[Rfam]
RNA: Mammalian CPEB3 ribozyme
RNA sequence: GGUUGCAAGUUUGAGGACAAAGCAGAAGCACUCAUGGUGUGUCCUGUCAGAUUCCAGUGAAUUGGUGAAUUCUGCU
Numbered sequence: 001g002g003u004u005g006c007a008a009g010u011u012u013g014a015g016g017a018c019a020a021a022g023c024a025g026a027a028g029c030a031c032u033c034a035u036g037g038u039g040u041g042u043c044c045u046g047u048c049a050g051a052u053u054c055c056a057g058u059g060a061a062u063u064g065g066u067g068a069a070u071u072c073u074g075c076u
Base pairs, nucleotide, nucleotide: 015044016043017042018041021076022075023074024073025072026071027070028040029039030038048065050063051062052061053060054059